[Rfam]
RNA sequence: UUGCCGGUGUAAGUCCGGUCCGGGUAGCUGCCAGGAGGCCCGGUAGCAGGCUGGCGGCUCGGUCUGGAAACGGGUCGGGGUCGGAGCCCAGUGUCGAAAGCCCUGUAAUAGGGGGGAGCGAGGAUGCGGUCCGCAGCGUCA
Numbered sequence: 001u002u003g004c005c006g007g008u009g010u011a012a013g014u015c016c017g018g019u020c021c022g023g024g025u026a027g028c029u030g031c032c033a034g035g036a037g038g039c040c041c042g043g044u045a046g047c048a049g050g051c052u053g054g055c056g057g058c059u060c061g062g063u064c065u066g067g068a069a070a071c072g073g074g075u076c077g078g079g080g081u082c083g084g085a086g087c088c089c090a091g092u093g094u095c096g097a098a099a100g101c102c103c104u105g106u107a108a109u110a111g112g113g114g115g116g117a118g119c120g121a122g123g124a125u126g127c128g129g130u131c132c133g134c135a136g137c138g139u140c141a
Stems, first nucleotide, its partner, number of pairs: 020043005050092005055083006064074002101113004118134003

Shown here is a 141-nucleotide RNA from Rhodococcus jostii, a member of the family "Group II catalytic intron D1-D4-4". Group II introns are found in rRNA, tRNA and mRNA of organelles in fungi, plants and protists, and also in mRNA in bacteria. Taxonomically the source falls in Rhodococcus jostii (Bacteria, Bacillati, Actinomycetes, Mycobacteriales).